This 342-nucleotide RNA sequence from Sphingomonas lutea belongs to the Rfam family "Alphaproteobacteria transfer-messenger RNA".
The match comes from Rfam's covariance-model search (220 bits).

RNA sequence: AUCCUUGAGGUUCACGCUUCGUGCGCCUAUCUAGGGCGUGCCGGGGAAACCCGGCUACGUCGGUAGAUUGUUGAGUGGAAUAAGCACUUCGGACCCGGGGGCAGUACCCCGGCGCCUCCACCACCAGCCCUCGUCGCGAGGAUUGCUGAUGGGGGCGAAAUAGGAUCGACGAGUGCGGUAAAGGCUUGGCUGCCGAUCGGUAGGAGACCACCGUGAAGGCUCAAUCACACAAGUGCUAACGAUAACGAAGCACUCGCGAUUGCCGCGUAACUGACGUCCUAACGGACUAAGUUACAAAGCUUAAGCGCGGUCGGACCCCACCGGGCAACAGAAGGGGAUUCC
Numbered sequence: 001a002u003c004c005u006u007g008a009g010g011u012u013c014a015c016g017c018u019u020c021g022u023g024c025g026c027c028u029a030u031c032u033a034g035g036g037c038g039u040g041c042c043g044g045g046g047a048a049a050c051c052c053g054g055c056u057a058c059g060u061c062g063g064u065a066g067a068u069u070g071u072u073g074a075g076u077g078g079a080a081u082a083a084g085c086a087c088u089u090c091g092g093a094c095c096c097g098g099g100g101g102c103a104g105u106a107c108c109c110c111g112g113c114g115c116c117u118c119c120a121c122c123a124c125c126a127g128c129c130c131u132c133g134u135c136g137c138g139a140g141g142a143u144u145g146c147u148g149a150u151g152g153g154g155g156c157g158a159a160a161u162a163g164g165a166u167c168g169a170c171g172a173g174u175g176c177g178g179u180a181a182a183g184g185c186u187u188g189g190c191u192g193c194c195g196a197u198c199g200g201u202a203g204g205a206g207a208c209c210a211c212c213g214u215g216a217a218g219g220c221u222c223a224a225u226c227a228c229a230c231a232a233g234u235g236c237u238a239a240c241g242a243u244a245a246c247g248a249a250g251c252a253c254u255c256g257c258g259a260u261u262g263c264c265g266c267g268u269a270a271c272u273g274a275c276g277u278c279c280u281a282a283c284g285g286a287c288u289a290a291g292u293u294a295c296a297a298a299g300c301u302u303a304a305g306c307g308c309g310g311u312c313g314g315a316c317c318c319c320a321c322c323g324g325g326c327a328a329c330a331g332a333a334g335g336g337g338a339u340u341c342c
Base pairs, nucleotide, nucleotide: 040055041054042053043052044051059197060196061195062194063193070190071189072188073187074186075185076184085175086174087173089172090171091170095112096111097110098109099108113157114156115155116154117153118152119151198213199212200211201210204222205221208219209218308323309322310321311320314340315339317337318336319335